[Rfam]
RNA sequence: GUUUCCGUCCCCUUGCGGGGAAGUGGUAAUGAAUCUAC
Numbered sequence: 001g002u003u004u005c006c007g008u009c010c011c012c013u014u015g016c017g018g019g020g021a022a023g024u025g026g027u028a029a030u031g032a033a034u035c036u037a038c
Stems, first nucleotide, its partner, number of pairs: 005026002008021005
RNA: CRISPR RNA direct repeat element